The record is a 165-nucleotide sequence from a Solirubrobacterales bacterium, which matches "c-di-AMP riboswitch aptamer (ydaO/yuaA leader)" in Rfam. It scores 71 bits against the family's covariance model. Rfam links the family to the GO terms cyclic-di-AMP binding and regulation of gene expression. Lineage of the source: Bacteria > Bacillati > Actinomycetota > Thermoleophilia > Solirubrobacterales.
RNA sequence: GCGCGCGCACCGCUGAGUCCUCGCCACAUAUGCGAGGAGCGGGGGACCCACCGAGGGGGAUCUAUCUGCCUCGGCUUCGGGGCGAAUCGCCGGCAUCCGCCGCGUAGCGCCAUCUCUUUCGGCGCGAGCCCGUCAGCUAACCCCGCAAGCGCCGAAAGAGAUGAA
Numbered sequence: 001g002c003g004c005g006c007g008c009a010c011c012g013c014u015g016a017g018u019c020c021u022c023g024c025c026a027c028a029u030a031u032g033c034g035a036g037g038a039g040c041g042g043g044g045g046a047c048c049c050a051c052c053g054a055g056g057g058g059g060a061u062c063u064a065u066c067u068g069c070c071u072c073g074g075c076u077u078c079g080g081g082g083c084g085a086a087u088c089g090c091c092g093g094c095a096u097c098c099g100c101c102g103c104g105u106a107g108c109g110c111c112a113u114c115u116c117u118u119u120c121g122g123c124g125c126g127a128g129c130c131c132g133u134c135a136g137c138u139a140a141c142c143c144c145g146c147a148a149g150c151g152c153c154g155a156a157a158g159a160g161a162u163g164a165a
Stems, first nucleotide, its partner, number of pairs: 011151004018038007039146006049079001080131003088104003107125004